[Rfam]
RNA: mir-1421 microRNA precursor family
Organism: Ornithorhynchus anatinus
RNA sequence: CGGUGCGAGGGGGUCGUACGUCAUGCAGAGUGAUGGCGGAAUAUGCUGCAUGCGUGCGACCUCCUUACACAGC
Numbered sequence: 001c002g003g004u005g006c007g008a009g010g011g012g013g014u015c016g017u018a019c020g021u022c023a024u025g026c027a028g029a030g031u032g033a034u035g036g037c038g039g040a041a042u043a044u045g046c047u048g049c050a051u052g053c054g055u056g057c058g059a060c061c062u063c064c065u066u067a068c069a070c071a072g073c
Stems, first nucleotide, its partner, number of pairs: 003070003007066001009064013024050004
Dot-bracket structure: ..(((.(.(((((((((((((..((((...................)))).))))))))))))).).)))...